[Rfam]
RNA: Lysine riboswitch aptamer
Organism: Blautia faecicola
RNA sequence: AAUUUAGGUAGAGGUUGCAUUUUUUAUCAGUAAUUUGUCGGAUGUUUCAGGAGCAGAAGAAGGCAAAGGAAAGGAAAAAGUGCCGAAAGGGCGAAGAAACCUGAAACUUGGUUCUUGGGCGUGUCUGUGAAGAACGGCAUGACUGUCAUCGAAAGAUGGAGUGCUAUCCAAAGA
Numbered sequence: 001a002a003u004u005u006a007g008g009u010a011g012a013g014g015u016u017g018c019a020u021u022u023u024u025u026a027u028c029a030g031u032a033a034u035u036u037g038u039c040g041g042a043u044g045u046u047u048c049a050g051g052a053g054c055a056g057a058a059g060a061a062g063g064c065a066a067a068g069g070a071a072a073g074g075a076a077a078a079a080g081u082g083c084c085g086a087a088a089g090g091g092c093g094a095a096g097a098a099a100c101c102u103g104a105a106a107c108u109u110g111g112u113u114c115u116u117g118g119g120c121g122u123g124u125c126u127g128u129g130a131a132g133a134a135c136g137g138c139a140u141g142a143c144u145g146u147c148a149u150c151g152a153a154a155g156a157u158g159g160a161g162u163g164c165u166a167u168c169c170a171a172a173g174a
Base pairs, nucleotide, nucleotide: 007168008167009166010165011164017083018082019081020080021079022078023077024076025075034067035066036065037064038063039062087116088115089114090113091112092111094109095108096107117144118143120141121140122139123138125137126136127135128134146159147158148157149156150155